L31-Gammaproteobacteria ribosomal protein leader: a 51-nucleotide RNA sequence from Vibrio metschnikovii.

RNA sequence: CGUGUGGUGUCCGGCAUUGAUCCGGAUAGCGACGCGGCCUACAUUUGAGGU
Numbered sequence: 001c002g003u004g005u006g007g008u009g010u011c012c013g014g015c016a017u018u019g020a021u022c023c024g025g026a027u028a029g030c031g032a033c034g035c036g037g038c039c040u041a042c043a044u045u046u047g048a049g050g051u
Stems, first nucleotide, its partner, number of pairs: 001036005007030002011025004015019001
Dot-bracket structure: (((((.((..(((((...)..))))...)).)))))...............
Clan: Ribosomal Protein L31 Leader clan. The family's consensus secondary structure is taken from published work. NCBI's taxonomy places the organism under Bacteria, Pseudomonadati, Pseudomonadota, Gammaproteobacteria, Vibrio metschnikovii. For this family Rfam cites "Discovery of 20 novel ribosomal leader candidates in bacteria and archaea" (Eckert and Weinberg, BMC Microbiol, 2020). By type it is a cis-regulatory leader.